[Rfam]
RNA sequence: UGGUGAGGUAGAGGCGCAAAAGUCAUUAGUAUCAUUUUUGAGAAUGGCAACAAUGAAAAAAUGAGAAAGGGGCUUUUGCCGAAGUAGGGGUUAUUGCCAAAGUAUCCUCUGCUGGGCCGAUAUUGAAUAAGUAUCGGACUGUCACUAGUGAAGACUAGUGGAGCGCUAUCUCAAGA
Numbered sequence: 001u002g003g004u005g006a007g008g009u010a011g012a013g014g015c016g017c018a019a020a021a022g023u024c025a026u027u028a029g030u031a032u033c034a035u036u037u038u039u040g041a042g043a044a045u046g047g048c049a050a051c052a053a054u055g056a057a058a059a060a061a062u063g064a065g066a067a068a069g070g071g072g073c074u075u076u077u078g079c080c081g082a083a084g085u086a087g088g089g090g091u092u093a094u095u096g097c098c099a100a101a102g103u104a105u106c107c108u109c110u111g112c113u114g115g116g117c118c119g120a121u122a123u124u125g126a127a128u129a130a131g132u133a134u135c136g137g138a139c140u141g142u143c144a145c146u147a148g149u150g151a152a153g154a155c156u157a158g159u160g161g162a163g164c165g166c167u168a169u170c171u172c173a174a175g176a
Stems, first nucleotide, its partner, number of pairs: 006171006016079009032064008083113008092104003114140002117137008142161007
Lysine riboswitch aptamer: a 176-nucleotide sequence from Vulcanibacillus modesticaldus. The match comes from Rfam's covariance-model search (142 bits). The organism belongs to Vulcanibacillus, within Bacteria.